A member of the RNA family "MIR390 microRNA precursor family" from Raphanus sativus, 109 nucleotides long.
The family's consensus secondary structure was predicted with WAR.
A search with the family's covariance model found it, with a score of 103 bits.
A reference for the family is Gustafson et al. (2005), "ASRP: the Arabidopsis Small RNA Project Database", Nucleic Acids Res.
Rfam 15.1 lists 649 matches to the family in 206 species.
[Rfam]
RNA sequence: GAGAAGUAGCUGUAAAGCUCAGGAGGGAUAGCGCCAUCACUCACCCUUACUAUAUAUGUCAUUGUAUAAGUAAUGGCGCUAUCCAUCCUGAGUUCCAUGGCUUCUUCUU
Number, nucleotide and partner (000 for none) at each position: 001g000002a000003g000004a000005a000006g000007u000008a000009g000010c100011u000012g000013u000014a000015a000016a094017g093018c092019u091020c090021a089022g088023g087024a086025g000026g084027g083028a082029u081030a080031g079032c078033g077034c076035c075036a000037u000038c000039a000040c000041u000042c000043a000044c000045c000046c000047u000048u000049a000050c000051u000052a000053u000054a000055u000056a000057u000058g000059u000060c000061a000062u000063u000064g000065u000066a000067u000068a000069a000070g000071u000072a000073a000074u000075g035076g034077c033078g032079c031080u030081a029082u028083c027084c026085a000086u024087c023088c022089u021090g020091a019092g018093u017094u016095c000096c000097a000098u000099g000100g010101c000102u000103u000104c000105u000106u000107c000108u000109u000